Shown here is a 101-nucleotide RNA from Digitaria exilis, a member of the family "Small nucleolar RNA R11/Z151".
NCBI's taxonomy places the organism under Eukaryota, Embryophyta, Euphyllophyta, Panicoideae, Digitaria.
[Rfam]
RNA sequence: GGGCUGAUGAUGAUUUGGAUCCGAAAGGAUCUUAGCGGAUUUCGGUGAGGCGGAUUCAUCUGUCGUUGAUCGUUUACAUGUUGUUACACACACUGAAGCCC
Numbered sequence: 001g002g003g004c005u006g007a008u009g010a011u012g013a014u015u016u017g018g019a020u021c022c023g024a025a026a027g028g029a030u031c032u033u034a035g036c037g038g039a040u041u042u043c044g045g046u047g048a049g050g051c052g053g054a055u056u057c058a059u060c061u062g063u064c065g066u067u068g069a070u071c072g073u074u075u076a077c078a079u080g081u082u083g084u085u086a087c088a089c090a091c092a093c094u095g096a097a098g099c100c101c
Base pairs, nucleotide, nucleotide: 001101002100003099004098005097